Pseudomonas sRNA P26: a 76-nucleotide RNA from Erwinia sp. Leaf53. NCBI's taxonomy places the organism under Bacteria, Pseudomonadati, Pseudomonadota, Erwiniaceae, Erwinia. This small RNA (sRNA) was computationally identified in the genome of the opportunistic pathogen Pseudomonas aeruginosa and its expression verified by northern blot analysis. P26 is conserved across many Gammaproteobacteria species and appears to be consistently located between the DNA directed RNA polymerase (beta subunit) and 50S ribosomal protein L7/L12 genes. Pairs were carried over by alignment from the consensus structure, which was predicted with RNAalifold. It is annotated as a non-coding RNA gene. For this family Rfam cites "Identification of 17 Pseudomonas aeruginosa sRNAs and prediction of sRNA-encoding genes in 10 diverse pathogens using the bioinformatic tool sRNAPredict2" (Livny et al., Nucleic Acids Res, 2006).

[Rfam]
RNA sequence: ACCUUCCAGGUUGCAGCUUGAGUCUGACAUUACGUUAGCUCAGGCUGAUGGCUGGUGACUUUUUGGUCACCAGCCU
Numbered sequence: 001a002c003c004u005u006c007c008a009g010g011u012u013g014c015a016g017c018u019u020g021a022g023u024c025u026g027a028c029a030u031u032a033c034g035u036u037a038g039c040u041c042a043g044g045c046u047g048a049u050g051g052c053u054g055g056u057g058a059c060u061u062u063u064u065g066g067u068c069a070c071c072a073g074c075c076u
Stems, first nucleotide, its partner, number of pairs: 014047005022039002050075010